[Rfam]
RNA: MIR397 microRNA precursor family
Organism: Papaver nudicaule
RNA sequence: UAAGAAAACAUCAUUGAGUGCUGCGUUGAUGAAAUUCUUGGUCUUGGAGCAUUCCAAUGGCUUUCACCAACGCCUCAUUCAAUUAUGUCUUUU
Numbered sequence: 001u002a003a004g005a006a007a008a009c010a011u012c013a014u015u016g017a018g019u020g021c022u023g024c025g026u027u028g029a030u031g032a033a034a035u036u037c038u039u040g041g042u043c044u045u046g047g048a049g050c051a052u053u054c055c056a057a058u059g060g061c062u063u064u065c066a067c068c069a070a071c072g073c074c075u076c077a078u079u080c081a082a083u084u085a086u087g088u089c090u091u092u093u
Stems, first nucleotide, its partner, number of pairs: 006090001008088004013083008023073006030066005